The family of this 109-nucleotide sequence from Edaphosphingomonas laterariae is "SAM-I/IV (S-adenosyl methionine) riboswitch aptamer". The source organism's lineage runs through Bacteria, Pseudomonadota, Alphaproteobacteria, Rhizorhabdaceae and Edaphosphingomonas.
RNA sequence: ACCCCACAUCAAGAGUUGGGGCGACGCCCAACGCCAACCUGCCUUUCCGGGCAAGGUGGCACUCCCUUUUCGGGAGGAUGUGGCCCGACCGGCAACCAAGCGGAUCAAG
Numbered sequence: 001a002c003c004c005c006a007c008a009u010c011a012a013g014a015g016u017u018g019g020g021g022c023g024a025c026g027c028c029c030a031a032c033g034c035c036a037a038c039c040u041g042c043c044u045u046u047c048c049g050g051g052c053a054a055g056g057u058g059g060c061a062c063u064c065c066c067u068u069u070u071c072g073g074g075a076g077g078a079u080g081u082g083g084c085c086c087g088a089c090c091g092g093c094a095a096c097c098a099a100g101c102g103g104a105u106c107a108a109g
Base pairs, nucleotide, nucleotide: 006081007080008079009078010077015032016031017030018029019028020027033060034059035058038056039055040054041052042051043050046104047103048102049101083093084092085091